[Rfam]
RNA sequence: AAUUUUAUAGGUCAUGGAGUUGACCUUUAACCGCUUUCAAAGCUGAUGACUCCUGUAGAACU
Numbered sequence: 001a002a003u004u005u006u007a008u009a010g011g012u013c014a015u016g017g018a019g020u021u022g023a024c025c026u027u028u029a030a031c032c033g034c035u036u037u038c039a040a041a042g043c044u045g046a047u048g049a050c051u052c053c054u055g056u057a058g059a060a061c062u
Base pairs, nucleotide, nucleotide: 010025011024012023013022016053017052018051019050020049021048033043034042035041
RNA: Fluoride riboswitch aptamer (crcB RNA motif)